[Rfam]
Background
The record is an 84-nucleotide RNA sequence from Paenibacillus antri, which matches "c-di-GMP-I riboswitch aptamer" in Rfam. The family's consensus secondary structure is taken from published work. Rfam links the family to the GO term cyclic-di-GMP binding. Taxonomically the source falls in Paenibacillus (Bacteria, Bacillati, Bacilli, Caryophanales).

RNA sequence: AGGAAAAUUAGGCAAACCCAUUGAAAAUUGGGGGCGCAAAGCUAUAGGGGCUAACGUGUUACACUAUGCCAGCCAGCUGCCGAA
Numbered sequence: 001a002g003g004a005a006a007a008u009u010a011g012g013c014a015a016a017c018c019c020a021u022u023g024a025a026a027a028u029u030g031g032g033g034g035c036g037c038a039a040a041g042c043u044a045u046a047g048g049g050g051c052u053a054a055c056g057u058g059u060u061a062c063a064c065u066a067u068g069c070c071a072g073c074c075a076g077c078u079g080c081c082g083a084a
Stems, first nucleotide, its partner, number of pairs: 012037002017032004022027001040078004047074002049070003056064003